[Rfam]
RNA sequence: CGUCCACAAGAAGGGAGCUCGCAGACGGGCUGAGAGGGGACUGUGCGUCCCGACCUGUGACCUGAUUUGGGUAAUGCCAACGUAGGGAGAUCGUUUUUCGGUGCAU
Numbered sequence: 001c002g003u004c005c006a007c008a009a010g011a012a013g014g015g016a017g018c019u020c021g022c023a024g025a026c027g028g029g030c031u032g033a034g035a036g037g038g039g040a041c042u043g044u045g046c047g048u049c050c051c052g053a054c055c056u057g058u059g060a061c062c063u064g065a066u067u068u069g070g071g072u073a074a075u076g077c078c079a080a081c082g083u084a085g086g087g088a089g090a091u092c093g094u095u096u097u098u099c100g101g102u103g104c105a106u
Stems, first nucleotide, its partner, number of pairs: 006094002009091001012056003017030005037051005061086004067080004
RNA: TPP riboswitch aptamer (THI element)
Organism: bacterium 1xD42-67